RNA sequence: GCCGAAAUGAUUACCAACCUUCUUUUAACUGAGGGUACAUGCAGGACAAAACAGUACAAAUAGGAAUUCUUCGUUUAUGAUUUCGGC
Numbered sequence: 001g002c003c004g005a006a007a008u009g010a011u012u013a014c015c016a017a018c019c020u021u022c023u024u025u026u027a028a029c030u031g032a033g034g035g036u037a038c039a040u041g042c043a044g045g046a047c048a049a050a051a052c053a054g055u056a057c058a059a060a061u062a063g064g065a066a067u068u069c070u071u072c073g074u075u076u077a078u079g080a081u082u083u084c085g086g087c
Stems, first nucleotide, its partner, number of pairs: 001087004
A member of the RNA family "Small nucleolar RNA snR57" from Candidozyma pseudohaemuli, 87 nucleotides long. Pairs were carried over by alignment from the consensus structure. It is annotated as a C/D-box small nucleolar RNA. Gene Ontology terms of the family: RNA processing and nucleolus.